The record is a 143-nucleotide RNA from Myripristis murdjan, which matches "Small nucleolar RNA SNORA79" in Rfam. ACA65 (SNORA79) is a member of the H/ACA class of snoRNAs that guide the sites of modification of uridines to pseudouridines. This snoRNA was identified by computational screening and its expression in mouse experimentally verified by Northern blot and primer extension analysis.
RNA sequence: CGACGUCUGUUCCUCCGCCUGCCCUCAGCUCAGGCAGUGUGGAUUUUAUGGCGUCGCAGAGUGAAAGCGGUCUAUUUCACCCAGCAGGUUUCAGGCAGCAGGGCUGCCGCUGUGGCCUCUUGGUUUUGCGGGACCGCACAAAC
Numbered sequence: 001c002g003a004c005g006u007c008u009g010u011u012c013c014u015c016c017g018c019c020u021g022c023c024c025u026c027a028g029c030u031c032a033g034g035c036a037g038u039g040u041g042g043a044u045u046u047u048a049u050g051g052c053g054u055c056g057c058a059g060a061g062u063g064a065a066a067g068c069g070g071u072c073u074a075u076u077u078c079a080c081c082c083a084g085c086a087g088g089u090u091u092c093a094g095g096c097a098g099c100a101g102g103g104c105u106g107c108c109g110c111u112g113u114g115g116c117c118u119c120u121u122g123g124u125u126u127u128g129c130g131g132g133a134c135c136g137c138a139c140a141a142a143c
Base pairs, nucleotide, nucleotide: 001056002055003054004053005052006051007050014043015042016041017040018039020036021035022034023033069135070134071133072132073131081123082122083121084120086118087117088116089115090114094111095110096109098107